[Rfam]
RNA: EcpR1
Organism: Aureimonas sp. Leaf324
RNA sequence: UUCCCCAUGGAAUGCUCAGGUCCGCCGCAUCUCCUGGGUCCCGUGGGGCGGUCGGCCGGCAUCUGGUCUCAAGCGGUUUCCUCGUACCGUGAUCGGAUCGCCGGCCGGCCACUUU
Dot-bracket structure: ..((((((((....((((((............))))))..)))))))).(((((((((((.......................................))))))))))).....
Numbered sequence: 001u002u003c004c005c006c007a008u009g010g011a012a013u014g015c016u017c018a019g020g021u022c023c024g025c026c027g028c029a030u031c032u033c034c035u036g037g038g039u040c041c042c043g044u045g046g047g048g049c050g051g052u053c054g055g056c057c058g059g060c061a062u063c064u065g066g067u068c069u070c071a072a073g074c075g076g077u078u079u080c081c082u083c084g085u086a087c088c089g090u091g092a093u094c095g096g097a098u099c100g101c102c103g104g105c106c107g108g109c110c111a112c113u114u115u
Stems, first nucleotide, its partner, number of pairs: 003048008015038006050110011